Shown here is a 46-nucleotide sequence from Suricata suricatta, a member of the family "Histone 3' UTR stem-loop". On this family, see Williams and Marzluff, Nucleic Acids Res 1995: "The sequence of the stem and flanking sequences at the 3' end of histone mRNA are critical determinants for the binding of the stem-loop binding protein". Rfam classes the family as a cis-regulatory element. The source organism's lineage runs through Eukaryota, Craniata, Mammalia, Boreoeutheria and Suricata. The mRNAs of metazoan histone genes lack a poly-A tail. 3' end processing occurs at a site between a highly conserved stem-loop (modelled by this family) and a purine rich region around 20 nts downstream (the histone downstream element, or HDE).
[Rfam]
RNA sequence: CCAAAGGCUCUUUUCAGAGCCACCCACAUGGCCACUAUGAGAGCUG
Numbered sequence: 001c002c003a004a005a006g007g008c009u010c011u012u013u014u015c016a017g018a019g020c021c022a023c024c025c026a027c028a029u030g031g032c033c034a035c036u037a038u039g040a041g042a043g044c045u046g
Base pairs, nucleotide, nucleotide: 006021007020008019009018010017011016